Notes:
The family of this 248-nucleotide RNA sequence from Desulfosporosinus orientis is "Group II catalytic intron D1-D4-6". The source organism's lineage runs through Bacteria, Bacillota, Eubacteriales, Desulfitobacteriaceae and Desulfosporosinus orientis. The base pairs follow the family's consensus structure. Rfam's curators write: Group II introns are found in rRNA, tRNA and mRNA of organelles in fungi, plants and protists, and also in mRNA in bacteria.
RNA sequence: AAAGUCCUUGCUGGGUAAGGUCUAGCCAACCACCCAUAUCGAGUGUUGCGUCGAAACUGGUAACAGUAAGGCGAAGCGUACACAGAGAACUAUAUAGGCCACAGGGAGGACAGUAACUCCUGAAGCACAUUCAGCCCCGUUAACGCGAAGAAUGCAGAUGACGACGUGUUUAACGUCACUGAAGCCAACACAGAGGAAUCGAAAACAAAAAGGCAAGAUUUCCGAGGGUCUGCCGGGGUCAGAGAACG
Numbered sequence: 001a002a003a004g005u006c007c008u009u010g011c012u013g014g015g016u017a018a019g020g021u022c023u024a025g026c027c028a029a030c031c032a033c034c035c036a037u038a039u040c041g042a043g044u045g046u047u048g049c050g051u052c053g054a055a056a057c058u059g060g061u062a063a064c065a066g067u068a069a070g071g072c073g074a075a076g077c078g079u080a081c082a083c084a085g086a087g088a089a090c091u092a093u094a095u096a097g098g099c100c101a102c103a104g105g106g107a108g109g110a111c112a113g114u115a116a117c118u119c120c121u122g123a124a125g126c127a128c129a130u131u132c133a134g135c136c137c138c139g140u141u142a143a144c145g146c147g148a149a150g151a152a153u154g155c156a157g158a159u160g161a162c163g164a165c166g167u168g169u170u171u172a173a174c175g176u177c178a179c180u181g182a183a184g185c186c187a188a189c190a191c192a193g194a195g196g197a198a199u200c201g202a203a204a205a206c207a208a209a210a211a212g213g214c215a216a217g218a219u220u221u222c223c224g225a226g227g228g229u230c231u232g233c234c235g236g237g238g239u240c241a242g243a244g245a246a247c248g
Stems, first nucleotide, its partner, number of pairs: 012036004019031003023216001025214002039086002043083004047078002049073004056067004131242001134239006154233006160186001162184001166179003191227001195222006